The family of this 192-nucleotide RNA from Papaver somniferum is "small nucleolar RNA snoR143". Gene Ontology terms of the family: nucleolus and RNA processing. The match comes from Rfam's covariance-model search (55 bits).

[Rfam]
RNA sequence: UUGCAUCUAUUGGGUUUAUUGAGUGCAAAGGCUAUGUAUUCCUUUGCACUUGUAUAUACCAAUGAUGCAGAAAUUGAAAACCAGUUGAGAUUUGUUUCAAUUGGUAGUGGCCAGACAACCGUAGGGAUGUGGUAUCCACAGAUAAGGGGUUUAAUUCAGUCCCGAUUUAUCUACUAACUACAUCUCACAUUU
Dot-bracket structure: .(((((....(((.(.(((((((((((((((.........)))))))))))).))).))))...)))))......................................................(((((((...(.........((((((..........)))...)))..........))))))))......
Numbered sequence: 001u002u003g004c005a006u007c008u009a010u011u012g013g014g015u016u017u018a019u020u021g022a023g024u025g026c027a028a029a030g031g032c033u034a035u036g037u038a039u040u041c042c043u044u045u046g047c048a049c050u051u052g053u054a055u056a057u058a059c060c061a062a063u064g065a066u067g068c069a070g071a072a073a074u075u076g077a078a079a080a081c082c083a084g085u086u087g088a089g090a091u092u093u094g095u096u097u098c099a100a101u102u103g104g105u106a107g108u109g110g111c112c113a114g115a116c117a118a119c120c121g122u123a124g125g126g127a128u129g130u131g132g133u134a135u136c137c138a139c140a141g142a143u144a145a146g147g148g149g150u151u152u153a154a155u156u157c158a159g160u161c162c163c164g165a166u167u168u169a170u171c172u173a174c175u176a177a178c179u180a181c182a183u184c185u186c187a188c189a190u191u192u
Stems, first nucleotide, its partner, number of pairs: 002069005011061003015058001017056003020052012124186007134179001144168003147162003